[Rfam]
RNA sequence: UCUUGCUCAAAUGAGUAUUCCAAAGAGAUGCAGAAUGCUAUGGUUUGUUAAUCCGUAGAAUAUUCUUGUGUUUCUGUGUAUCAGUUUGGAAGUGCAUCUGCUUCUGAGAUGCUCAUUUGGGCAAAG
Numbered sequence: 001u002c003u004u005g006c007u008c009a010a011a012u013g014a015g016u017a018u019u020c021c022a023a024a025g026a027g028a029u030g031c032a033g034a035a036u037g038c039u040a041u042g043g044u045u046u047g048u049u050a051a052u053c054c055g056u057a058g059a060a061u062a063u064u065c066u067u068g069u070g071u072u073u074c075u076g077u078g079u080a081u082c083a084g085u086u087u088g089g090a091a092g093u094g095c096a097u098c099u100g101c102u103u104c105u106g107a108g109a110u111g112c113u114c115a116u117u118u119g120g121g122c123a124a125a126g
Base pairs, nucleotide, nucleotide: 003124004123005122006121007120008119009118010117011116012115013114014113015112016111017110018109019108021106022105